Background
Shown here is a 132-nucleotide RNA from Didymodactylos carnosus, a member of the family "Vault RNA". NCBI's taxonomy places the organism under Eukaryota, Eumetazoa, Rotifera, Bdelloidea, Didymodactylos. The match comes from Rfam's covariance-model search (37 bits). The base pairs follow the family's consensus structure, which is taken from published work. By type it is a non-coding RNA gene.

[Rfam]
RNA sequence: AAGUUGGCUUUAGUACGUCGGCUACUUCGCUUUGUAUAUCAAUGGUAGAUAAUUUUGCUUAUAACAAAAACGUUGUGGGUUCGAUCCCCACCGAAGCACCUAACCUUGCCGACGACGCCAUCCAACUUUUUU
Number, nucleotide and partner (000 for none) at each position: 001a000002a127003g126004u125005u124006g123007g122008c000009u000010u000011u000012a000013g116014u115015a000016c000017g000018u112019c111020g110021g109022c000023u000024a000025c000026u000027u084028c083029g082030c000031u000032u000033u000034g000035u000036a000037u000038a000039u000040c000041a000042a000043u000044g000045g000046u000047a000048g000049a000050u000051a000052a000053u000054u000055u000056u000057g000058c000059u000060u000061a000062u000063a000064a000065c000066a000067a000068a000069a000070a000071c000072g000073u000074u000075g000076u000077g000078g000079g000080u000081u000082c029083g028084a027085u000086c000087c000088c000089c000090a000091c000092c000093g000094a000095a000096g000097c000098a000099c000100c000101u000102a000103a000104c000105c000106u000107u000108g000109c021110c020111g019112a018113c000114g000115a014116c013117g000118c000119c000120a000121u000122c007123c006124a005125a004126c003127u002128u000129u000130u000131u000132u000